[Rfam]
This 94-nucleotide RNA from Sporofaciens musculi belongs to the Rfam family "Selenocysteine transfer RNA". Taxonomically the source falls in Sporofaciens (Bacteria, Bacillati, Bacillota, Lachnospiraceae). Rfam links the family to the GO term triplet codon-amino acid adaptor activity. Clan: tRNA clan.
RNA sequence: GGGGGUAGUUGGGUGACUGGUGUGCCUCCUGGUCUUCAAAACCAGUGUUGGGCGUUAAGAGCGUCCUGGGUGGGUUCGAUUCCCACAUGCCCUC
Numbered sequence: 001g002g003g004g005g006u007a008g009u010u011g012g013g014u015g016a017c018u019g020g021u022g023u024g025c026c027u028c029c030u031g032g033u034c035u036u037c038a039a040a041a042c043c044a045g046u047g048u049u050g051g052g053c054g055u056u057a058a059g060a061g062c063g064u065c066c067u068g069g070g071u072g073g074g075u076u077c078g079a080u081u082c083c084c085a086c087a088u089g090c091c092c093u094c
Stems, first nucleotide, its partner, number of pairs: 001094007008086001011027005017022001029045005048068001050066003071085004